[Rfam]
Nucleotides: 160
Base pairs, nucleotide, nucleotide: 011145012144013143014142018040019039020038021037022036023035024034041140042139043138044137045136046135051073074125075124076123082100083099084098085097103119104118105117106116
Number, partner (000 for none) and nucleotide at each position: 001000u002000g003000c004000g005000g006000c007000g008000g009000c010000c011145u012144g013143c014142c015000g016000a017000g018040u019039c020038c021037g022036u023035g024034c025000a026000g027000c028000c029000a030000g031000g032000a033000g034024g035023c036022a037021c038020g039019g040018a041140g042139c043138c044137g045136g046135g047000g048000a049000c050000c051073c052000a053000c054000c055000g056000g057000c058000c059000g060000u061000g062000a063000g064000a065000c066000a067000c068000g069000g070000c071000c072000a073051g074125g075124g076123g077000u078000g079000a080000a081000u082100c083099g084098g085097c086000g087000c088000g089000u090000c091000c092000g093000a094000c095000g096000c097085g098084c099083c100082g101000u102000a103119g104118g105117g106116c107000u108000u109000c110000u111000u112000c113000c114000c115000u116106g117105c118104c119103c120000g121000a122000a123076c124075c125074c126000g127000u128000c129000a130000g131000c132000u133000a134000a135046c136045c137044c138043g139042g140041u141000a142014g143013g144012c145011g146000u147000c148000a149000g150000c151000g152000g153000a154000a155000g156000u157000c158000c159000c160000a